[Rfam]
The family of this 72-nucleotide RNA sequence is "RAGATH-16 RNA". The family's RNA type in Rfam is small RNA.
RNA sequence: GCUGAUAAAAUCAGCCGUCGCCGGUGCUGUGGAAUUAAGCCACAGGUUGCGAGAUAGUGAAAAUCCCCGGGG
Numbered sequence: 001g002c003u004g005a006u007a008a009a010a011u012c013a014g015c016c017g018u019c020g021c022c023g024g025u026g027c028u029g030u031g032g033a034a035u036u037a038a039g040c041c042a043c044a045g046g047u048u049g050c051g052a053g054a055u056a057g058u059g060a061a062a063a064u065c066c067c068c069g070g071g072g
Stems, first nucleotide, its partner, number of pairs: 001015006021070004027045006
It is one of the family's seed sequences.